[Rfam]
RNA: c-di-GMP-I riboswitch aptamer
RNA sequence: UUAAGUAAACGGCAAAGCUGUCGAAAGGCAGUGCACGCAAAGCCCGCGGAUCUUCUCACUGCUUAAGUGAUGACCGCCGGUUUACUAA
Numbered sequence: 001u002u003a004a005g006u007a008a009a010c011g012g013c014a015a016a017g018c019u020g021u022c023g024a025a026a027g028g029c030a031g032u033g034c035a036c037g038c039a040a041a042g043c044c045c046g047c048g049g050a051u052c053u054u055c056u057c058a059c060u061g062c063u064u065a066a067g068u069g070a071u072g073a074c075c076g077c078c079g080g081u082u083u084a085c086u087a088a
Stems, first nucleotide, its partner, number of pairs: 012038002017032006041082004048078002051073002057069004